This 141-nucleotide RNA sequence from Propithecus coquereli belongs to the Rfam family "U4 spliceosomal RNA".
Taxonomically the source falls in Propithecus (Eukaryota, Vertebrata, Tetrapoda, Amniota).
Rfam links the family to the GO terms spliceosomal tri-snRNP complex assembly and U4 snRNP.
On this family, see Zwieb, Nucleic Acids Res 1997: "The uRNA database".
The family's consensus secondary structure is taken from published work.
RNA sequence: AGCUUUGCACAGUGGCAGUAUCGUAGCCAAUGAAGUUUCUCUGAGGCACGACUGUUGCUAAUUGAAAACUUUUCCCAAUACCCCGCCGUGACGACUUGCAAUAUGGUCAGCAUUGGCAAUUUUUGACGGUCCCUAUGGGGA
Numbered sequence: 001a002g003c004u005u006u007g008c009a010c011a012g013u014g015g016c017a018g019u020a021u022c023g024u025a026g027c028c029a030a031u032g033a034a035g036u037u038u039c040u041c042u043g044a045g046g047c048a049c050g051a052c053u054g055u056u057g058c059u060a061a062u063u064g065a066a067a068a069c070u071u072u073u074c075c076c077a078a079u080a081c082c083c084c085g086c087c088g089u090g091a092c093g094a095c096u097u098g099c100a101a102u103a104u105g106g107u108c109a110g111c112a113u114u115g116g117c118a119a120u121u122u123u124u125g126a127c128g129g130u131c132c133c134u135a136u137g138g139g140g141a
Stems, first nucleotide, its partner, number of pairs: 021051004026047003034042002085117003088113003093108004130141004